Shown here is a 155-nucleotide RNA from Aspergillus viridinutans, a member of the family "A. fumigatus sRNA Afu_254".
The family's consensus secondary structure was predicted with WAR.
For this family Rfam cites "Small ncRNA transcriptome analysis from Aspergillus fumigatus suggests a novel mechanism for regulation of protein synthesis" (Jochl et al., Nucleic Acids Res, 2008).
Lineage of the source: Eukaryota > Ascomycota > Pezizomycotina > Eurotiomycetes > Aspergillus subgen. Fumigati.
[Rfam]
Nucleotides: 155
Stems, first nucleotide, its partner, number of pairs: 083113004090106003117142003126133002
Number, partner (000 for none) and nucleotide at each position: 001000u002000a003000c004000c005000a006000a007000c008000u009000g010000a011000a012000c013000a014000a015000u016000a017000c018000a019000a020000u021000c022000u023000c024000a025000a026000a027000g028000c029000c030000u031000a032000u033000c034000u035000u036000c037000c038000u039000c040000a041000a042000g043000c044000a045000a046000c047000c048000c049000u050000u051000c052000u053000u054000u055000c056000a057000c058000c059000a060000c061000c062000a063000a064000c065000u066000c067000a068000a069000u070000c071000a072000a073000a074000a075000u076000g077000a078000c079000u080000c081000c082000c083113u084112g085111c086110u087000c088000c089000u090106g091105c092104a093000a094000c095000u096000c097000c098000u099000g100000c101000a102000g103000c104092u105091g106090c107000u108000c109000c110086a111085g112084c113083g114000a115000c116000u117142g118141c119140a120000a121000c122000g123000g124000c125000u126133g127132c128000a129000a130000a131000u132127g133126c134000a135000c136000c137000u138000c139000c140119u141118g142117c143000g144000g145000u146000g147000u148000a149000u150000g151000u152000a153000u154000c155000u